Small nucleolar RNA SNORD19: a 74-nucleotide RNA sequence from Neogobius melanostomus. Gene Ontology terms of the family: nucleolus and RNA processing. Lineage of the source: Eukaryota > Vertebrata > Neopterygii > Gobioidei > Neogobius.

RNA sequence: UGGAAAUGAGGAUAAAACGCACGUCUGAAACUUACUGUGAAGACUGAUAAUCCAACUCUGAUCCGAAGCGCUGC
Numbered sequence: 001u002g003g004a005a006a007u008g009a010g011g012a013u014a015a016a017a018c019g020c021a022c023g024u025c026u027g028a029a030a031c032u033u034a035c036u037g038u039g040a041a042g043a044c045u046g047a048u049a050a051u052c053c054a055a056c057u058c059u060g061a062u063c064c065g066a067a068g069c070g071c072u073g074c
Base pairs, nucleotide, nucleotide: 001065002064003063004062
For this family Rfam cites "RNomics: an experimental approach that identifies 201 candidates for novel, small, non-messenger RNAs in mouse" (Huttenhofer et al., EMBO J, 2001).